MIR9481 microRNA precursor family: a 135-nucleotide sequence from Brachypodium distachyon.
[Rfam]
RNA sequence: UGCAGAUACGGAGGUCAGGAAUUCUACUGGUUUAACUAAAUUUCAUUCGACAAGACAAAGUAAAAAAACUCUUUCAAUUAUGUCGAAUGUUUUUAGUGGAAAAUCAGUCGGAUUUCUCACCUUCAAAUCUGCAUC
Numbered sequence: 001u002g003c004a005g006a007u008a009c010g011g012a013g014g015u016c017a018g019g020a021a022u023u024c025u026a027c028u029g030g031u032u033u034a035a036c037u038a039a040a041u042u043u044c045a046u047u048c049g050a051c052a053a054g055a056c057a058a059a060g061u062a063a064a065a066a067a068a069c070u071c072u073u074u075c076a077a078u079u080a081u082g083u084c085g086a087a088u089g090u091u092u093u094u095a096g097u098g099g100a101a102a103a104u105c106a107g108u109c110g111g112a113u114u115u116c117u118c119a120c121c122u123u124c125a126a127a128u129c130u131g132c133a134u135c
Base pairs, nucleotide, nucleotide: 001133002132003131004130005129006128007127010124011123012122013121014120015119017117018116019115020114021113022112023111024110026108027107028106029105030104031103032102033101035097036096037095038094039093040092044089045088046087047086048085049084050083051082

Rfam's curators put it in the seed alignment.